[Rfam]
Nucleotides: 473
Stems, first nucleotide, its partner, number of pairs: 029369001031367005043354002060348005065341002080253006088246001090244001098241004139180003143166004148162001185229008201216006261317003265313001267292002270288002383392001385390001395461006405455001407453001424441001426439002442450003
Number, partner (000 for none) and nucleotide at each position: 001000c002000u003000g004000a005000g006000g007000c008000c009000c010000g011000a012000g013000c014000g015000c016000c017000c018000g019000a020000c021000c022000c023000a024000g025000a026000c027000a028000c029369c030000c031367g032366c033365c034364c035363c036000a037000g038000a039000a040000a041000a042000c043354c044353c045000a046000g047000g048000a049000g050000c051000g052000a053000g054000u055000a056000g057000g058000g059000g060348g061347c062346g063345g064344c065341g066340c067000c068000g069000g070000a071000a072000g073000g074000a075000g076000c077000g078000g079000g080253c081252g082251g083250g084249g085248g086000g087000c088246g089000u090244g091000g092000g093000g094000g095000u096000c097000g098241u099240g100239g101238g102000c103000c104000g105000u106000c107000g108000g109000g110000g111000u112000g113000g114000a115000g116000a117000c118000g119000u120000a121000u122000u123000a124000g125000a126000u127000g128000u129000g130000a131000c132000g133000c134000c135000g136000c137000g138000c139180c140179c141178g142000g143166g144165g145164u146163a147000g148162c149000a150000g151000c152000a153000g154000g155000c156000g157000g158000a159000c160000g161000c162148g163146u164145g165144c166143c167000c168000g169000c170000g171000u172000g173000g174000c175000g176000a177000g178141c179140g180139g181000a182000u183000c184000c185229c186228g187227g188226c189225u190224g191223c192222u193000g194000c195000g196000g197000c198000u199000u200000a201216g202215g203214g204213a205212g206211g207000c208000g209000g210000c211206c212205c213204u214203c215202c216201c217000g218000a219000g220000a221000g222192g223191g224190c225189g226188g227187c228186c229185g230000c231000a232000g233000a234000g235000g236000c237000a238101u239100c240099c241098a242000c243000c244090c245000u246088c247000a248085c249084c250083c251082c252081c253080g254000a255000u256000c257000c258000g259000c260000a261317c262316g263315g264000a265313c266000c267292g268291c269000g270288g271287c272000u273000c274000c275000c276000c277000g278000c279000g280000c281000u282000c283000u284000a285000g286000g287271g288270c289000g290000g291268g292267c293000g294000g295000a296000g297000a298000g299000g300000a301000a302000g303000c304000g305000g306000c307000c308000g309000a310000a311000c312000a313265g314000c315263u316262c317261g318000a319000g320000g321000c322000u323000g324000g325000g326000g327000c328000u329000c330000g331000c332000g333000g334000c335000g336000c337000g338000g339000c340066g341065c342000g343000u344064g345063c346062c347061g348060c349000g350000g351000g352000a353044g354043g355000g356000a357000g358000g359000c360000u361000g362000g363035g364034g365033g366032g367031c368000c369029g370000g371000g372000c373000c374000g375000g376000g377000g378000c379000c380000g381000c382000g383392c384000c385390c386000g387000a388000g389000c390385g391000c392383g393000u394000c395461g396460a397459g398458g399457c400456c401000g402000g403000g404000c405455c406000g407453g408000g409000g410000c411000g412000c413000g414000g415000c416000g417000g418000c419000u420000c421000c422000c423000c424441g425000c426439g427438c428000g429000g430000c431000u432000c433000c434000a435000g436000g437000g438427g439426c440000u441424c442450g443449g444448g445000g446000a447000c448444c449443c450442c451000g452000c453407c454000a455405g456400g457399g458398c459397c460396u461395u462000g463000g464000u465000g466000g467000g468000g469000c470000c471000a472000u473000g